The record is a 129-nucleotide sequence from Microlunatus parietis, which matches "ALIL pseudoknot" in Rfam. It scores 79 bits against the family's covariance model. Its family is annotated with positive regulation of translational frameshifting in the Gene Ontology. It is annotated as a cis-regulatory element.
RNA sequence: GGCUUUCUUCGCGGCGGAGCUCGACCGCCCACCCAGGUACUGAUCGUGUUCAUCGACGAACACCGGGACCGGUUCGGGGUCGAGCCGAUCUGUCGCGUGCUGACCGAGCACGGGAUCAAGAUCGCCCCG
Numbered sequence: 001g002g003c004u005u006u007c008u009u010c011g012c013g014g015c016g017g018a019g020c021u022c023g024a025c026c027g028c029c030c031a032c033c034c035a036g037g038u039a040c041u042g043a044u045c046g047u048g049u050u051c052a053u054c055g056a057c058g059a060a061c062a063c064c065g066g067g068a069c070c071g072g073u074u075c076g077g078g079g080u081c082g083a084g085c086c087g088a089u090c091u092g093u094c095g096c097g098u099g100c101u102g103a104c105c106g107a108g109c110a111c112g113g114g115a116u117c118a119a120g121a122u123c124g125c126c127c128c129g
Stems, first nucleotide, its partner, number of pairs: 013029005075129005086124002089121003